[Rfam]
RNA sequence: CACAGGCGGGUUUUUGCGGUUCCUGAUUCAAGGCGUCGCGCCCGGUGGUUUUUAGCAAUCCAGCGAAAAACCCAGUACCCGCCGAGGUUUAACCGGAGAAUGAGUUUA
Numbered sequence: 001c002a003c004a005g006g007c008g009g010g011u012u013u014u015u016g017c018g019g020u021u022c023c024u025g026a027u028u029c030a031a032g033g034c035g036u037c038g039c040g041c042c043c044g045g046u047g048g049u050u051u052u053u054a055g056c057a058a059u060c061c062a063g064c065g066a067a068a069a070a071c072c073c074a075g076u077a078c079c080c081g082c083c084g085a086g087g088u089u090u091a092a093c094c095g096g097a098g099a100a101u102g103a104g105u106u107u108a
Base pairs, nucleotide, nucleotide: 001086003084005083006082007081008080009079010078011077016039017038018037019036020035047071049069050068051067052066

rpsB sRNA: a 108-nucleotide RNA sequence from Methylovirgula sp. 4M-Z18. A reference for the family is Meyer et al. (2009), "Identification of candidate structured RNAs in the marine organism 'Candidatus Pelagibacter ubique'", BMC Genomics. A search with the family's covariance model found it, with a score of 41 bits. Taxonomically the source falls in Methylovirgula (Bacteria, Pseudomonadati, Alphaproteobacteria, Beijerinckiaceae). The family's RNA type in Rfam is small RNA.